[Rfam]
Rfam assigns this 93-nucleotide RNA from Aspergillus puulaauensis to the family "A. fumigatus snoRNA Afu_263". The family's RNA type in Rfam is C/D-box small nucleolar RNA. A search with the family's covariance model found it, with a score of 72 bits. The organism belongs to Aspergillus, within Eukaryota. Clan: SNORD77 clan. On this family, see Jochl et al., Nucleic Acids Res 2008: "Small ncRNA transcriptome analysis from Aspergillus fumigatus suggests a novel mechanism for regulation of protein synthesis".

RNA sequence: UAUUAUGAUGAACACCAUACCCAUAAAGCAUAGUUCACCUGAGAUCUUCGGAUCGCUGAACGACAACAGUACCAUCACCAUUUACUUCUGACA
Dot-bracket structure: .......(((.....)))..............(((((.....((((....))))..)))))................................